Overview: The record is a 195-nucleotide RNA sequence from Pseudomonas putida, which matches "RgsA sRNA" in Rfam. By type it is a small RNA.
RNA sequence: AACGAAACGUUGGCGUAUUCCAAAUCUGUUUAAAAAACGUCCAAUAUGCACUGGCACUGCGCCAAACCUGACCAAUACUUGAAGUGUUGGCGCGGCGCAUCCCCCCCAGUGGCGCGCCGAUAAAGGUGCUCAGGGACCGCGUACCUUUGUUUUACUCCUAAUGGUCUUAACCCGGAUUCCUCCCCCAGAACCCGG
Numbered sequence: 001a002a003c004g005a006a007a008c009g010u011u012g013g014c015g016u017a018u019u020c021c022a023a024a025u026c027u028g029u030u031u032a033a034a035a036a037a038c039g040u041c042c043a044a045u046a047u048g049c050a051c052u053g054g055c056a057c058u059g060c061g062c063c064a065a066a067c068c069u070g071a072c073c074a075a076u077a078c079u080u081g082a083a084g085u086g087u088u089g090g091c092g093c094g095g096c097g098c099a100u101c102c103c104c105c106c107c108a109g110u111g112g113c114g115c116g117c118c119g120a121u122a123a124a125g126g127u128g129c130u131c132a133g134g135g136a137c138c139g140c141g142u143a144c145c146u147u148u149g150u151u152u153u154a155c156u157c158c159u160a161a162u163g164g165u166c167u168u169a170a171c172c173c174g175g176a177u178u179c180c181u182c183c184c185c186c187a188g189a190a191c192c193c194g195g
Stems, first nucleotide, its partner, number of pairs: 039166001041164003086121004091116002094113001096111003122148008130139001172195004177190003